[Rfam]
RNA sequence: GGCCACCAUCCCUUUACAACGGAUCGUCCGGCACGUUCCUGCCGGUGAAGGAGCAGAAC
Numbered sequence: 001g002g003c004c005a006c007c008a009u010c011c012c013u014u015u016a017c018a019a020c021g022g023a024u025c026g027u028c029c030g031g032c033a034c035g036u037u038c039c040u041g042c043c044g045g046u047g048a049a050g051g052a053g054c055a056g057a058a059c
Stems, first nucleotide, its partner, number of pairs: 010051002013049004028045006
Shown here is a 59-nucleotide RNA sequence from Phycicoccus elongatus, a member of the family "msiK RNA".
By type it is a cis-regulatory element.
Pairs were carried over by alignment from the consensus structure, which is taken from published work.